Group I catalytic intron: a 357-nucleotide sequence from Pseudoneobacillus rhizosphaerae. The family has 12 seed sequences and 5,602 matches in Rfam 15.1. Rfam describes the family as follows. Group I catalytic introns are large self-splicing ribozymes. They catalyse their own excision from mRNA, tRNA and rRNA precursors in a wide range of organisms. The match comes from Rfam's covariance-model search (78 bits). A reference for the family is Cech (1990), "Self-splicing of group I introns", Annu Rev Biochem.

[Rfam]
RNA sequence: UCAUCUGGCUCUGUAUCUUGGUUAGAUGAUAUUGCGAAAUUAACACAUCUUGUUGAGCAAGGUGGUUCCCGUUAAUACCCAUGGCGGGAUUAAAAUCUCGUGAAUUGCUGGAAUACCCUAAAGCCUUUCAAGCUACAACGUAACUGGUAACGGUAAGCGUGAACGCUUUAAAAAUUGAUAGGAUAAAACAAUGGGCAAUCAGCAGCGAAGCAUCUUUGGAAACGAAGAUGAACGUUCAACGACUAUUGAAAUUUCCUUGAAUGGAAAAAGUAAACUUGAGAUUCGGUGACGAAUUUUAAGGGCACGAGACAAGGUAUGUCCUUGAUGAUAUAGUCUGACCUCUAGUGAAAGCUAGAG
Number, nucleotide and partner (000 for none) at each position: 001u000002c000003a000004u000005c025006u024007g023008g022009c021010u020011c000012u000013g017014u000015a000016u000017c013018u000019u000020g010021g009022u008023u007024a006025g005026a000027u000028g000029a000030u000031a040032u039033u038034g000035c000036g000037a000038a033039a032040u031041u000042a000043a000044c000045a000046c000047a000048u000049c000050u000051u000052g000053u000054u000055g000056a000057g000058c000059a000060a000061g000062g000063u000064g000065g000066u000067u000068c000069c000070c000071g000072u000073u000074a000075a000076u000077a000078c000079c000080c000081a000082u000083g000084g000085c000086g000087g000088g000089a000090u000091u000092a000093a000094a000095a000096u309097c308098u307099c306100g000101u304102g303103a000104a000105u000106u204107g203108c202109u201110g200111g199112a000113a000114u000115a000116c195117c194118c193119u000120a000121a000122a000123g000124c000125c000126u000127u000128u000129c000130a000131a000132g000133c000134u000135a000136c000137a000138a000139c000140g000141u000142a000143a000144c000145u000146g000147g000148u000149a000150a000151c000152g000153g000154u000155a000156a000157g000158c000159g000160u000161g000162a000163a000164c000165g000166c000167u000168u000169u000170a000171a000172a000173a000174a000175u000176u000177g000178a000179u000180a000181g000182g000183a000184u000185a000186a000187a000188a000189c000190a000191a000192u000193g118194g117195g116196c000197a000198a000199u111200c110201a109202g108203c107204a106205g235206c234207g000208a000209a000210g000211c000212a229213u228214c227215u226216u000217u000218g000219g000220a000221a000222a000223c000224g000225a000226a215227g214228a213229u212230g000231a000232a000233c000234g206235u205236u000237c000238a000239a336240c000241g335242a334243c333244u332245a331246u000247u000248g000249a000250a000251a000252u000253u000254u000255c000256c000257u000258u000259g000260a000261a000262u000263g000264g000265a000266a000267a000268a000269a000270g000271u000272a000273a000274a000275c000276u000277u000278g000279a000280g000281a000282u000283u000284c000285g000286g000287u000288g000289a000290c000291g000292a000293a000294u000295u000296u000297u000298a000299a000300g000301g000302g000303c102304a101305c000306g099307a098308g097309a096310c000311a000312a322313g321314g320315u000316a000317u000318g000319u000320c314321c313322u312323u000324g000325a000326u000327g000328a000329u000330a000331u245332a244333g243334u242335c241336u239337g000338a000339c000340c000341u000342c355343u354344a353345g352346u351347g000348a000349a000350a000351g346352c345353u344354a343355g342356a000357g000